[Rfam]
RNA sequence: UGAAACGCUGCUCUGUACAAAUGUAUAGGAUGAAGCAUUGUGCAGAGC
Numbered sequence: 001u002g003a004a005a006c007g008c009u010g011c012u013c014u015g016u017a018c019a020a021a022u023g024u025a026u027a028g029g030a031u032g033a034a035g036c037a038u039u040g041u042g043c044a045g046a047g048c
Base pairs, nucleotide, nucleotide: 011047012046013045014044015043017041018040019039
Shown here is a 48-nucleotide sequence from Priestia taiwanensis, a member of the family "uup RNA".
The family's consensus secondary structure is taken from published work.
The family's RNA type in Rfam is cis-regulatory element.